[Rfam]
RNA sequence: AUUCCUACACUUACUGCUCGCGCGAUAAUUCAUAUAAUGAUGGGCAGUAA
Numbered sequence: 001a002u003u004c005c006u007a008c009a010c011u012u013a014c015u016g017c018u019c020g021c022g023c024g025a026u027a028a029u030u031c032a033u034a035u036a037a038u039g040a041u042g043g044g045c046a047g048u049a050a
Stems, first nucleotide, its partner, number of pairs: 011050008
RNA: malK-II RNA